[Rfam]
RNA: RNA Staph. aureus E (RoxS)
Organism: Solibacillus sp. R5-41
Nucleotides: 109
Stems, first nucleotide, its partner, number of pairs: 003054005011047004019040006078106006084099005
Number, partner (000 for none) and nucleotide at each position: 001000g002000u003054g004053a005052a006051a007050u008000a009000a010000a011047u012046c013045a014044c015000a016000u017000a018000a019040c020039a021038a022037a023036c024035a025000u026000a027000c028000a029000c030000c031000c032000c033000u034000u035024u036023g037022u038021u039020u040019g041000a042000a043000c044014g045013u046012g047011a048000a049000c050007a051006u052005u053004u054003c055000u056000c057000c058000c059000a060000u061000c062000c063000c064000c065000u066000u067000u068000g069000u070000g071000a072000a073000a074000a075000a076000g077000a078106g079105g080104c081103a082102c083101c084099c085098u086097a087096u088095c089000g090000u091000c092000g093000a094000g095088g096087a097086u098085a099084g100000a101083g102082g103081u104080g105079c106078c107000u108000c109000u